[Rfam]
RNA sequence: CCCUCCGAAGUUUCCCCCAGGAUAGCAGGAACUUUGUACACAGUUUUAUCAGGUCGAGCGAAUGAUUAGAGGUUCUGGGGAUGAAACAUCCUCAACCUAUUCUCAAACUUCAAAUAGGUAAGAAGCCUGACUUGCUUAAGUGAAGCCAGGCAUUGAAUGUGAGUUCCUAGUGGGCCGUCUUUGGUAAGCAGAGCUGGCGAUGCGGGAUGAACCGAUCGCAAAGUUAAGGUGCCAAAAUCAACGCUCAUUCCAGAUCCCACAAAAGGUGUUGGUUGAUAUAGACAGCAGGACGGUGGCCAUGGAAGCAGGAAACCGCUAAGGAGUGCGUAACAGCUCACCUGCCGAAUCAACUAGCCCUGAAAAUGGAUGGCGCUCAAGCGUUGUACCGAUACUUUGCCGUUGGCGCAAAUGCGAUGUGUCAACGAGUAGGAGGGCGUAGAGGUUGUGACGAAGCCUUUGGCGUGAGCCUGGGUGAAACGGCCUCUAGUGCAGAU
Numbered sequence: 001c002c003c004u005c006c007g008a009a010g011u012u013u014c015c016c017c018c019a020g021g022a023u024a025g026c027a028g029g030a031a032c033u034u035u036g037u038a039c040a041c042a043g044u045u046u047u048a049u050c051a052g053g054u055c056g057a058g059c060g061a062a063u064g065a066u067u068a069g070a071g072g073u074u075c076u077g078g079g080g081a082u083g084a085a086a087c088a089u090c091c092u093c094a095a096c097c098u099a100u101u102c103u104c105a106a107a108c109u110u111c112a113a114a115u116a117g118g119u120a121a122g123a124a125g126c127c128u129g130a131c132u133u134g135c136u137u138a139a140g141u142g143a144a145g146c147c148a149g150g151c152a153u154u155g156a157a158u159g160u161g162a163g164u165u166c167c168u169a170g171u172g173g174g175c176c177g178u179c180u181u182u183g184g185u186a187a188g189c190a191g192a193g194c195u196g197g198c199g200a201u202g203c204g205g206g207a208u209g210a211a212c213c214g215a216u217c218g219c220a221a222a223g224u225u226a227a228g229g230u231g232c233c234a235a236a237a238u239c240a241a242c243g244c245u246c247a248u249u250c251c252a253g254a255u256c257c258c259a260c261a262a263a264a265g266g267u268g269u270u271g272g273u274u275g276a277u278a279u280a281g282a283c284a285g286c287a288g289g290a291c292g293g294u295g296g297c298c299a300u301g302g303a304a305g306c307a308g309g310a311a312a313c314c315g316c317u318a319a320g321g322a323g324u325g326c327g328u329a330a331c332a333g334c335u336c337a338c339c340u341g342c343c344g345a346a347u348c349a350a351c352u353a354g355c356c357c358u359g360a361a362a363a364u365g366g367a368u369g370g371c372g373c374u375c376a377a378g379c380g381u382u383g384u385a386c387c388g389a390u391a392c393u394u395u396g397c398c399g400u401u402g403g404c405g406c407a408a409a410u411g412c413g414a415u416g417u418g419u420c421a422a423c424g425a426g427u428a429g430g431a432g433g434g435c436g437u438a439g440a441g442g443u444u445g446u447g448a449c450g451a452a453g454c455c456u457u458u459g460g461c462g463u464g465a466g467c468c469u470g471g472g473u474g475a476a477a478c479g480g481c482c483u484c485u486a487g488u489g490c491a492g493a494u
Base pairs, nucleotide, nucleotide: 001434002433003432004431005430006429011024013022014021015020027168028167029166030165031164032163033162044123045122046121047120048119049118050117056111057109058108063105064104065103068100070098071097072096076094077093078092079091080090082088125151126150127149128148129147131145132144133143174198175197176196177195179193180192181191182190183189203214204213205212218397219396220395221394222393224391228387229386230385237384239383242380243379244378264358265357266356268355269354270353271352272351273350274349275348276347277346285342286341287340288339289338291315292314293313297309298308316320321336325334326333398424399423400422401421402420403419404418405417406416435489437486438485439484440483441482442481443480444479445478446477453473454472459468460467461466
The family of this 494-nucleotide part of an RNA from Capsaspora owczarzaki is "Eukaryotic large subunit ribosomal RNA". Clan: LSU clan. NCBI's taxonomy places the organism under Eukaryota, Opisthokonta, Filasterea, Ministeriida, Capsaspora owczarzaki. Rfam links the family to the GO terms structural constituent of ribosome and ribosome. Rfam's curators put it in the seed alignment.